[Rfam]
RNA sequence: GUUGGACACUUCAGGUUUCGCGAUUUUCGAACUCUGUUUAUAAGAGUGGUUCGUUGUCGUCGAAACCUGCAAUGUUACAAC
Numbered sequence: 001g002u003u004g005g006a007c008a009c010u011u012c013a014g015g016u017u018u019c020g021c022g023a024u025u026u027u028c029g030a031a032c033u034c035u036g037u038u039u040a041u042a043a044g045a046g047u048g049g050u051u052c053g054u055u056g057u058c059g060u061c062g063a064a065a066c067c068u069g070c071a072a073u074g075u076u077a078c079a080a081c
Base pairs, nucleotide, nucleotide: 001081002080003079004078005076012069013068014067015066016065017064018063019062020061029052030051031050032049033048
The record is an 81-nucleotide RNA from Homarus americanus, which matches "mir-981 microRNA precursor family" in Rfam. Rfam links the family to the GO terms miRNA-mediated post-transcriptional gene silencing and RISC complex. Rfam 15.1 lists 180 matches to the family in 170 species. For this family Rfam cites "Bioinformatic prediction, deep sequencing of microRNAs and expression analysis during phenotypic plasticity in the pea aphid, Acyrthosiphon pisum" (Legeai et al., BMC Genomics, 2010). NCBI's taxonomy places the organism under Eukaryota, Metazoa, Bilateria, Stomatocarida, Homarus.